[Rfam]
RNA sequence: AAUAGUAGCAGCAUAGUUAGGUGAGAAUCCUAACCGCCGAAGGGGCUAGGUUUCCUCGGCAAUGAUCGUCAGCCGAGGGUUAGUCGGUCCUAAGUUGUACCGUAAUUCGAGUACAUCAAAAGGGAAACAGGUUAAUAUUCCUGUACUAUUCAACAAUAAAACUGACGUUUUGGGGCAGGCUGAGCGGCGCUGUCGCGCCGUUUAAGCAUCUAAAUCUGUGGAGAGCCGUAAUGGCGAGAAGCAGACGAAUAUGUUAUGACGAAAGUCGGCUGCACCCCGGAACCCGUGAAAAGGGAGUUGAAUAUCCGUACCGAGAUCUGACACAGGUGCCCCUAGCUGAAAAGGCUAAGGCGUGU
Numbered sequence: 001a002a003u004a005g006u007a008g009c010a011g012c013a014u015a016g017u018u019a020g021g022u023g024a025g026a027a028u029c030c031u032a033a034c035c036g037c038c039g040a041a042g043g044g045g046c047u048a049g050g051u052u053u054c055c056u057c058g059g060c061a062a063u064g065a066u067c068g069u070c071a072g073c074c075g076a077g078g079g080u081u082a083g084u085c086g087g088u089c090c091u092a093a094g095u096u097g098u099a100c101c102g103u104a105a106u107u108c109g110a111g112u113a114c115a116u117c118a119a120a121a122g123g124g125a126a127a128c129a130g131g132u133u134a135a136u137a138u139u140c141c142u143g144u145a146c147u148a149u150u151c152a153a154c155a156a157u158a159a160a161a162c163u164g165a166c167g168u169u170u171u172g173g174g175g176c177a178g179g180c181u182g183a184g185c186g187g188c189g190c191u192g193u194c195g196c197g198c199c200g201u202u203u204a205a206g207c208a209u210c211u212a213a214a215u216c217u218g219u220g221g222a223g224a225g226c227c228g229u230a231a232u233g234g235c236g237a238g239a240a241g242c243a244g245a246c247g248a249a250u251a252u253g254u255u256a257u258g259a260c261g262a263a264a265g266u267c268g269g270c271u272g273c274a275c276c277c278c279g280g281a282a283c284c285c286g287u288g289a290a291a292a293g294g295g296a297g298u299u300g301a302a303u304a305u306c307c308g309u310a311c312c313g314a315g316a317u318c319u320g321a322c323a324c325a326g327g328u329g330c331c332c333c334u335a336g337c338u339g340a341a342a343a344g345g346c347u348a349a350g351g352c353g354u355g356u
Stems, first nucleotide, its partner, number of pairs: 016034006035353004043332004049312002054078006063071002085308003089123002094117001096115004101109002127144005147304008162294002167283009178271005183202006206254004215245005225235003260265001318327002334348004

This 356-nucleotide part of an RNA from Methanococcoides burtonii belongs to the Rfam family "Archaeal large subunit ribosomal RNA". NCBI's taxonomy places the organism under Archaea, Methanobacteriati, Methanobacteriota, Methanomicrobia, Methanococcoides burtonii. Rfam's curators put it in the seed alignment.